[Rfam]
RNA sequence: CAUUGAAGUGAUGAUACCUUCUUCUGACUUUAAUGGAUGUGGAUUUAUUGAAUCAGACUACAAUUAUCUGAUCAAUG
Dot-bracket structure: ((((((.................................................................))))))